[Rfam]
RNA sequence: CAGCAGACAGUUCUCCCUUUCUAGUCUGGCUCAUGGGACUCUAGAGGGAGUCCGUCUGCAACAGUAAGUGGUGAGUUCUUCCGUCUGUCGUCAGUAUUUUGAUGGUGGCUUCAGACUUGCCGGAUAUCA
Number, nucleotide and partner (000 for none) at each position: 001c000002a000003g059004c058005a057006g056007a055008c054009a000010g000011u000012u000013c000014u000015c000016c000017c000018u000019u000020u045021c044022u043023a042024g041025u038026c037027u036028g000029g000030c000031u000032c000033a000034u000035g000036g027037g026038a025039c000040u000041c024042u023043a022044g021045a020046g000047g000048g000049a000050g000051u000052c000053c000054g008055u007056c006057u005058g004059c003060a000061a000062c000063a000064g000065u000066a000067a000068g000069u122070g121071g120072u119073g118074a117075g116076u000077u115078c114079u113080u000081c000082c000083g109084u108085c107086u000087g000088u000089c104090g103091u102092c101093a100094g099095u000096a000097u000098u000099u094100u093101g092102a091103u090104g089105g000106u000107g085108g084109c083110u000111u000112c000113a079114g078115a077116c075117u074118u073119g072120c071121c070122g069123g000124a000125u000126a000127u000128c000129a000